[Rfam]
RNA: SAM riboswitch aptamer (S box leader)
RNA sequence: CUCUUAUCAAGAGAGGUGGAGGGACGUGCCCGAUGAAACCCGGCAACCGUUAACAACUGUUAAAAUGGUGCCAAUUCACACAAAGCUUAUGCUUUGGUAGAUGAGAG
Numbered sequence: 001c002u003c004u005u006a007u008c009a010a011g012a013g014a015g016g017u018g019g020a021g022g023g024a025c026g027u028g029c030c031c032g033a034u035g036a037a038a039c040c041c042g043g044c045a046a047c048c049g050u051u052a053a054c055a056a057c058u059g060u061u062a063a064a065a066u067g068g069u070g071c072c073a074a075u076u077c078a079c080a081c082a083a084a085g086c087u088u089a090u091g092c093u094u095u096g097g098u099a100g101a102u103g104a105g106a107g
Base pairs, nucleotide, nucleotide: 001107002106003105004104005103006102007101008100013041015040016039017038021031022030023029026079027078028077042072043071044070045069047068048067050063051062052061076099081096082095083094084093085092086091